[Rfam]
RNA sequence: GUCAGGGACCCCACGCAUGAACGCGGGGGCUUGUAAAAGCAAGCCCACACCUGACCAGUCUCAGUUUUGAAACAGAAACUCCGUUACGGAAGAAAUGAGGUACGGCAGAGUGCGCGGCCAGCUCUGCCCUCUACGGUCGCUCAUUAAACAGGCGUACAGGGUUAAACCAGUGUGGGUGACGAUAAACCUUCUUGUAACAUUGACGCGGCCAACCUUAC
Numbered sequence: 001g002u003c004a005g006g007g008a009c010c011c012c013a014c015g016c017a018u019g020a021a022c023g024c025g026g027g028g029g030c031u032u033g034u035a036a037a038a039g040c041a042a043g044c045c046c047a048c049a050c051c052u053g054a055c056c057a058g059u060c061u062c063a064g065u066u067u068u069g070a071a072a073c074a075g076a077a078a079c080u081c082c083g084u085u086a087c088g089g090a091a092g093a094a095a096u097g098a099g100g101u102a103c104g105g106c107a108g109a110g111u112g113c114g115c116g117g118c119c120a121g122c123u124c125u126g127c128c129c130u131c132u133a134c135g136g137u138c139g140c141u142c143a144u145u146a147a148a149c150a151g152g153c154g155u156a157c158a159g160g161g162u163u164a165a166a167c168c169a170g171u172g173u174g175g176g177u178g179a180c181g182a183u184a185a186a187c188c189u190u191c192u193u194g195u196a197a198c199a200u201u202g203a204c205g206c207g208g209c210c211a212a213c214c215u216u217a218c
Stems, first nucleotide, its partner, number of pairs: 001055006007048001009029002011026002015024002030043004058204003063080005083198006091192004100134002104128008112214001116210004136180009148171002151168002155164002
Source information: Rfam assigns this 218-nucleotide RNA from Dictyobacter aurantiacus to the family "HNH endonuclease-associated RNA and ORF (HEARO) RNA". The family has 139 seed sequences and 952 matches in Rfam 15.1. NCBI's taxonomy places the organism under Bacteria, Bacillati, Chloroflexota, Dictyobacteraceae, Dictyobacter. The literature on the family includes a 2009 paper in Nature by Weinberg et al., "Exceptional structured noncoding RNAs revealed by bacterial metagenome analysis". It is annotated as a non-coding RNA gene. The base pairs follow the family's consensus structure, which is taken from published work.